[Rfam]
A member of the RNA family "mir-166 microRNA precursor family" from Cuscuta campestris, 145 nucleotides long. For this family Rfam cites "MicroRNAs in plants" (Reinhart et al., Genes Dev, 2002). About the family: This family represents the plant microRNA (miRNA) precursor mir-166. The family has 31 seed sequences and 2,599 matches in Rfam 15.1. The match comes from Rfam's covariance-model search (65 bits).
RNA sequence: GUUGAGGGGAAUGUUGGCUGGCUCGAUGUGGCGUUCCUUGUACGACAUCGUCGUCUUUGUCACUCGUUAGGGAUGAUGAUGAUGACGAUGAUGGACUGUGUGGUUGAGUGAACUCGGCAUCGGACCAGGCUUCAUUCCUCUCAAU
Number, nucleotide and partner (000 for none) at each position: 001g145002u144003u143004g142005a141006g140007g139008g138009g137010a136011a135012u134013g133014u000015u000016g130017g000018c128019u127020g126021g125022c000023u000024c122025g121026a120027u119028g118029u117030g000031g000032c000033g000034u000035u000036c000037c000038u000039u000040g000041u000042a000043c000044g000045a000046c000047a000048u000049c000050g000051u000052c000053g000054u000055c000056u000057u000058u000059g000060u000061c000062a000063c000064u000065c000066g000067u000068u000069a000070g000071g000072g000073a000074u000075g000076a000077u000078g000079a000080u000081g000082a000083u000084g000085a000086c000087g000088a000089u000090g000091a000092u000093g000094g000095a000096c000097u000098g000099u000100g000101u000102g000103g000104u000105u000106g000107a000108g000109u000110g000111a000112a000113c000114u000115c000116g000117g029118c028119a027120u026121c025122g024123g000124a000125c021126c020127a019128g018129g000130c016131u000132u000133c013134a012135u011136u010137c009138c008139u007140c006141u005142c004143a003144a002145u001